RNA sequence: GACUGUCCAUGACGUUAAAACACUAAAAUCCCUGGGAUGUGUUUUAGUUGAUUUCAGUC
Numbered sequence: 001g002a003c004u005g006u007c008c009a010u011g012a013c014g015u016u017a018a019a020a021c022a023c024u025a026a027a028a029u030c031c032c033u034g035g036g037a038u039g040u041g042u043u044u045u046a047g048u049u050g051a052u053u054u055c056a057g058u059c
Stems, first nucleotide, its partner, number of pairs: 001059005014048010028038003
Selenocysteine insertion sequence 1: a 59-nucleotide RNA sequence from Mytilus coruscus. The incorporation of selenocysteine into a protein sequence is directed by an in-frame UGA codon (usually a stop codon) within the coding region of the mRNA. Selenoprotein mRNAs contain a conserved secondary structure in the 3' UTR that is required for the distinction of UGA stop from UGA selenocysteine. Rfam 15.1 lists 3,793 matches to the family in 721 species.